[Rfam]
RNA sequence: GGUUUUGACAAUGAGGAUAUAAAAGCUCCCUCUUCUGAAAUUGUAGUUGAGGAAUGUUGCUGGCAGAAUCGAACCAUAAAAACCUUUUGCCAUCACUGAGUUA
Numbered sequence: 001g002g003u004u005u006u007g008a009c010a011a012u013g014a015g016g017a018u019a020u021a022a023a024a025g026c027u028c029c030c031u032c033u034u035c036u037g038a039a040a041u042u043g044u045a046g047u048u049g050a051g052g053a054a055u056g057u058u059g060c061u062g063g064c065a066g067a068a069u070c071g072a073a074c075c076a077u078a079a080a081a082a083c084c085u086u087u088u089g090c091c092a093u094c095a096c097u098g099a100g101u102u103a
Stems, first nucleotide, its partner, number of pairs: 006103004
Dot-bracket structure: .....((((..........................................................................................))))
RNA: Small nucleolar RNA R30/Z108
Organism: Arachis hypogaea